[Rfam]
The record is a 55-nucleotide RNA sequence from Striga hermonthica, which matches "Plastid-clpP 5UTR RNA" in Rfam. The base pairs follow the family's consensus structure, which was predicted with LocARNA. Rfam describes the family as follows. Plastid clpP is a non-coding RNA (ncRNA) recognised in plastids. It was found in the prime untranslated region (5UTR) of a protease complex subunit (clpP) in plastids, suggesting a posible cis-regulatory function. Rfam 15.1 lists 2,105 matches to the family in 526 species. NCBI's taxonomy places the organism under Eukaryota, eudicotyledons, Gunneridae, Lamiales, Striga.
RNA sequence: AAUUCUGUUCGUAGGAACAAAGAGAAGCAGAUUUAUUCUGUACUCAAAUUCGGGA
Numbered sequence: 001a002a003u004u005c006u007g008u009u010c011g012u013a014g015g016a017a018c019a020a021a022g023a024g025a026a027g028c029a030g031a032u033u034u035a036u037u038c039u040g041u042a043c044u045c046a047a048a049u050u051c052g053g054g055a
Stems, first nucleotide, its partner, number of pairs: 003022002006019005043054003